[Rfam]
RNA sequence: CUGAUCGGCUAGGGGUGCCCCCGCGGGGGCUGAGAACAGGGUGAGCCCUGUAACCCUUGGAACCUGAUCCGGUUAGUACCGGCGGAGGGAAGCCCGUGGAAAAACUU
Number, nucleotide and partner (000 for none) at each position: 001c000002u000003g000004a000005u000006c000007g094008g093009c092010u091011a057012g056013g055014g054015g000016u000017g030018c029019c028020c027021c026022c000023g000024c000025g000026g021027g020028g019029g018030c017031u000032g000033a000034g000035a000036a000037c050038a049039g048040g047041g046042u000043g000044a000045g000046c041047c040048c039049u038050g037051u000052a000053a000054c014055c013056c012057u011058u000059g000060g000061a000062a000063c088064c087065u086066g000067a000068u000069c082070c081071g080072g079073u000074u000075a000076g000077u000078a000079c072080c071081g070082g069083c000084g000085g000086a065087g064088g063089g000090a000091a010092g009093c008094c007095c000096g000097u000098g000099g000100a000101a000102a000103a000104a000105c000106u000107u000
RNA: TPP riboswitch aptamer (THI element)